This 121-nucleotide RNA from Listeria londonensis belongs to the Rfam family "Listeria snRNA rli51". Pairs were carried over by alignment from the consensus structure, which was predicted with RNAalifold.

[Rfam]
Nucleotides: 121
Stems, first nucleotide, its partner, number of pairs: 008121003012117017035044002045079003050074001053072005
Number, partner (000 for none) and nucleotide at each position: 001000a002000u003000a004000u005000u006000a007000a008121a009120a010119g011000u012117u013116u014115a015114a016113g017112u018111c019110a020109c021108u022107u023106a024105u025104a026103g027102u028101u029000u030000c031000c032000u033000a034000c035044u036043g037000c038000g039000a040000a041000a042000a043036c044035a045079u046078a047077u048000a049000a050074u051000u052000u053072u054071u055070a056069g057068u058000u059000c060000c061000c062000a063000c064000c065000c066000a067000u068057a069056c070055u071054a072053a073000a074050a075000u076000u077047g078046u079045g080000u081000c082000c083000u084000u085000a086000g087000c088000u089000c090000u091000c092000u093000a094000u095000u096000a097000a098000u099000u100000u101028g102027g103026c104025u105024a106023u107022a108021g109020g110019u111018g112017g113016c114015u115014u116013a117012a118000u119010c120009u121008u
The family's RNA type in Rfam is cis-regulatory element.